[Rfam]
RNA sequence: CACAACUCUGCGGGAGAGAUUGGCUGUCUGUACGCAGACGCGCCAACGCCGAAGGCGCAAACCGCCCGGAAUCGCUCAGGCAAAAGGACCGCGGAAUUGGC
Numbered sequence: 001c002a003c004a005a006c007u008c009u010g011c012g013g014g015a016g017a018g019a020u021u022g023g024c025u026g027u028c029u030g031u032a033c034g035c036a037g038a039c040g041c042g043c044c045a046a047c048g049c050c051g052a053a054g055g056c057g058c059a060a061a062c063c064g065c066c067c068g069g070a071a072u073c074g075c076u077c078a079g080g081c082a083a084a085a086g087g088a089c090c091g092c093g094g095a096a097u098u099g100g101c
Stems, first nucleotide, its partner, number of pairs: 007095007020046004048081003051077002055075003062068001
Dot-bracket structure: ......(((((((......((((...................)))).(((((..(((....(.....)....))))).))).......)))))))......
Glycine riboswitch aptamer: a 101-nucleotide sequence from a Solemya velum gill symbiont. It scores 63 bits against the family's covariance model. About the family: This family represents the bacterial glycine riboswitch.